Rfam assigns this 75-nucleotide RNA sequence from Haemonchus placei to the family "mir-5928 microRNA precursor family". The match comes from Rfam's covariance-model search (61 bits). Pairs were carried over by alignment from the consensus structure, which was predicted with RNAalifold. NCBI's taxonomy places the organism under Eukaryota, Opisthokonta, Ecdysozoa, Trichostrongylidae, Haemonchus.
RNA sequence: GACUUAAACUCGAAGUAGAGUAGUUUGGUAGGGUCAGAUGAUCCUUCUAAUCUACUUUUCUUCAAAUUUUGGCCC
Dot-bracket structure: (.((.(((...((((.(((((((.((((.(.((((....)))).).)))).))))))).))))...))).)).).
Numbered sequence: 001g002a003c004u005u006a007a008a009c010u011c012g013a014a015g016u017a018g019a020g021u022a023g024u025u026u027g028g029u030a031g032g033g034u035c036a037g038a039u040g041a042u043c044c045u046u047c048u049a050a051u052c053u054a055c056u057u058u059u060c061u062u063c064a065a066a067u068u069u070u071g072g073c074c075c
Stems, first nucleotide, its partner, number of pairs: 001074001003072002006069003012063004017058007025050004030045001032043004